[Rfam]
RNA sequence: CCAUUCGAUAGAGGUAGCGGGCGCGAAGAUGCGCGAGGUAGCCGGCAGGCGAUGACCCCGCGCGAAGGCAACCCCGCCGAACUCGACCGCCGGGCGCGGCGCGAUCGGGUGGGACCGCAGGGAACACCUGCGGGACUGUCUGCACGAAUCUUGCAGGAGCGCUAUCAAGGAG
Numbered sequence: 001c002c003a004u005u006c007g008a009u010a011g012a013g014g015u016a017g018c019g020g021g022c023g024c025g026a027a028g029a030u031g032c033g034c035g036a037g038g039u040a041g042c043c044g045g046c047a048g049g050c051g052a053u054g055a056c057c058c059c060g061c062g063c064g065a066a067g068g069c070a071a072c073c074c075c076g077c078c079g080a081a082c083u084c085g086a087c088c089g090c091c092g093g094g095c096g097c098g099g100c101g102c103g104a105u106c107g108g109g110u111g112g113g114a115c116c117g118c119a120g121g122g123a124a125c126a127c128c129u130g131c132g133g134g135a136c137u138g139u140c141u142g143c144a145c146g147a148a149u150c151u152u153g154c155a156g157g158a159g160c161g162c163u164a165u166c167a168a169g170g171a172g
Stems, first nucleotide, its partner, number of pairs: 007166005017077005025069001031063005037057002081110006088103003111137002115133007139157006
Overview:
The family of this 172-nucleotide RNA from Collinsella sp. An271 is "Lysine riboswitch aptamer". Pairs were carried over by alignment from the consensus structure, which is taken from published work.